[Rfam]
RNA sequence: UUAGGUUAGAGAUUCUUAGUAGAGUGCGUUUACACUGUAACACUGUAAACACUACACUGUAAACGCACUCUACUAAGAAUCUCUAACCCA
Numbered sequence: 001u002u003a004g005g006u007u008a009g010a011g012a013u014u015c016u017u018a019g020u021a022g023a024g025u026g027c028g029u030u031u032a033c034a035c036u037g038u039a040a041c042a043c044u045g046u047a048a049a050c051a052c053u054a055c056a057c058u059g060u061a062a063a064c065g066c067a068c069u070c071u072a073c074u075a076a077g078a079a080u081c082u083c084u085a086a087c088c089c090a
Stems, first nucleotide, its partner, number of pairs: 008084004015077010026066009